[Rfam]
RNA sequence: ACGCUUCGAGCGCCGUGGGCAGGAGCGGGGGACCCAAGGUAAGUGCCGGACCCGGUCGUUGCGAGACGACCGGAACCGGCUCGGGGUGAAGCCGCGCGCCCAGCGCGCGGCCGGGCACUCACCAGGCCCGAACCCGACAGCUCACCUCGCAGGCGUCGGUGAGGAGAUCC
Numbered sequence: 001a002c003g004c005u006u007c008g009a010g011c012g013c014c015g016u017g018g019g020c021a022g023g024a025g026c027g028g029g030g031g032a033c034c035c036a037a038g039g040u041a042a043g044u045g046c047c048g049g050a051c052c053c054g055g056u057c058g059u060u061g062c063g064a065g066a067c068g069a070c071c072g073g074a075a076c077c078g079g080c081u082c083g084g085g086g087u088g089a090a091g092c093c094g095c096g097c098g099c100c101c102a103g104c105g106c107g108c109g110g111c112c113g114g115g116c117a118c119u120c121a122c123c124a125g126g127c128c129c130g131a132a133c134c135c136g137a138c139a140g141c142u143c144a145c146c147u148c149g150c151a152g153g154c155g156u157c158g159g160u161g162a163g164g165a166g167a168u169c170c
Stems, first nucleotide, its partner, number of pairs: 002155004011022001025150006035083001084135003092110004113129004
Dot-bracket structure: .((((.....(..........)..((((((....(...............................................)(((.....((((...........))))..((((.........))))...))).........)))))).))))...............
RNA: c-di-AMP riboswitch aptamer (ydaO/yuaA leader)
Organism: Streptomyces roseolilacinus